[Rfam]
RNA sequence: GUCUUCGAGGAGCGUUGCGACGGAUUCGCGGUUUGACUGCGUGAUCCGCCAGGCUCGAAGGCGCUCAAUACGGUCGAUUCGAGGGCUCGAUGCCGCGAACUCACCGCACUGAAAACGGCGCUCACGUCUU
Number, nucleotide and partner (000 for none) at each position: 001g000002u061003c060004u059005u058006c057007g056008a055009g000010g000011a000012g000013c000014g000015u000016u000017g000018c000019g000020a000021c048022g047023g046024a045025u044026u043027c000028g000029c000030g000031g000032u000033u000034u000035g000036a000037c000038u000039g000040c000041g000042u000043g026044a025045u024046c023047c022048g021049c000050c000051a000052g000053g000054c000055u008056c007057g006058a005059a004060g003061g002062c000063g000064c000065u000066c000067a000068a000069u000070a000071c000072g000073g000074u000075c000076g000077a000078u000079u000080c000081g000082a000083g000084g000085g000086c000087u000088c000089g000090a000091u000092g000093c000094c000095g000096c000097g000098a000099a000100c000101u000102c000103a000104c000105c000106g000107c000108a000109c000110u000111g000112a000113a000114a000115a000116c000117g000118g000119c000120g000121c000122u000123c000124a000125c000126g000127u000128c000129u000130u000
RNA: SAH (S-adenosyl-L-homocysteine) riboswitch aptamer
Organism: Paraburkholderia tagetis